[Rfam]
RNA sequence: CCUGUCCACCACGGGAGCUCGCGGCAGCGGGCUGAGAGGGAGCUGGAGCCGCUCCGACCGUCGAACCUGAUCCGGGUAGUGCCGGCGAAGGGAGCGGGGGAGCAGAUGCUUU
Numbered sequence: 001c002c003u004g005u006c007c008a009c010c011a012c013g014g015g016a017g018c019u020c021g022c023g024g025c026a027g028c029g030g031g032c033u034g035a036g037a038g039g040g041a042g043c044u045g046g047a048g049c050c051g052c053u054c055c056g057a058c059c060g061u062c063g064a065a066c067c068u069g070a071u072c073c074g075g076g077u078a079g080u081g082c083c084g085g086c087g088a089a090g091g092g093a094g095c096g097g098g099g100g101a102g103c104a105g106a107u108g109c110u111u112u
Base pairs, nucleotide, nucleotide: 006100007099009097010096011061012060013059014058017032018031019030020029021028039055040054041053042052043051066091067090068089072085073084074083075082

Rfam assigns this 112-nucleotide RNA from Nocardioides bruguierae to the family "TPP riboswitch aptamer (THI element)". The family's consensus secondary structure is taken from published work.